About this RNA:
The record is a 142-nucleotide RNA sequence from Planosporangium mesophilum, which matches "c-di-AMP riboswitch aptamer (ydaO/yuaA leader)" in Rfam. It scores 91 bits against the family's covariance model. NCBI's taxonomy places the organism under Bacteria, Bacillati, Micromonosporales, Micromonosporaceae, Planosporangium.
RNA sequence: GGAGCGGACCCGCCGAGUCGCGUUCAACGAGCCGGGGACCCAUCGCAAGUCCUGGGGUGAAUCCGUGGGCCAUGGCCUGCGGUAGGGCACCUUUCGCGCCCGAAUCCGUCAGCUAACCCGGUAGGCGGCAGCGUAAGGAGAU
Numbered sequence: 001g002g003a004g005c006g007g008a009c010c011c012g013c014c015g016a017g018u019c020g021c022g023u024u025c026a027a028c029g030a031g032c033c034g035g036g037g038a039c040c041c042a043u044c045g046c047a048a049g050u051c052c053u054g055g056g057g058u059g060a061a062u063c064c065g066u067g068g069g070c071c072a073u074g075g076c077c078u079g080c081g082g083u084a085g086g087g088c089a090c091c092u093u094u095c096g097c098g099c100c101c102g103a104a105u106c107c108g109u110c111a112g113c114u115a116a117c118c119c120g121g122u123a124g125g126c127g128g129c130a131g132c133g134u135a136a137g138g139a140g141a142u
Stems, first nucleotide, its partner, number of pairs: 011127004018030003031122006041054002055107003063082006085101004